[Rfam]
RNA sequence: UGCAUAUGAUGUGAACAGAAUAUUUGCUAUCUGACAAUAACUGAUGACAUGUCCACCAAGAUCGCUGAUGCA
Dot-bracket structure: ((((................................................................))))
Numbered sequence: 001u002g003c004a005u006a007u008g009a010u011g012u013g014a015a016c017a018g019a020a021u022a023u024u025u026g027c028u029a030u031c032u033g034a035c036a037a038u039a040a041c042u043g044a045u046g047a048c049a050u051g052u053c054c055a056c057c058a059a060g061a062u063c064g065c066u067g068a069u070g071c072a
Stems, first nucleotide, its partner, number of pairs: 001072004